[Rfam]
RNA sequence: GGGAGCCUUAGGUCCCACCUGGGGGCUGGGCCUGAGGCACAUGGGCUCAACUCGACCAUGUACCCAAGGCCCCGCCCCCAGGAGGGACCUAAGGCUCCCGGGCCUA
Numbered sequence: 001g002g003g004a005g006c007c008u009u010a011g012g013u014c015c016c017a018c019c020u021g022g023g024g025g026c027u028g029g030g031c032c033u034g035a036g037g038c039a040c041a042u043g044g045g046c047u048c049a050a051c052u053c054g055a056c057c058a059u060g061u062a063c064c065c066a067a068g069g070c071c072c073c074g075c076c077c078c079c080a081g082g083a084g085g086g087a088c089c090u091a092a093g094g095c096u097c098c099c100g101g102g103c104c105u106a
Stems, first nucleotide, its partner, number of pairs: 002098006010090003013086003021078004028072006036065002040060004

The record is a 106-nucleotide sequence from Geotrypetes seraphini, which matches "mir-8834 microRNA precursor family" in Rfam. Gene Ontology terms of the family: RISC complex and miRNA-mediated post-transcriptional gene silencing. Rfam 15.1 lists 13,926 matches to the family in 17 species.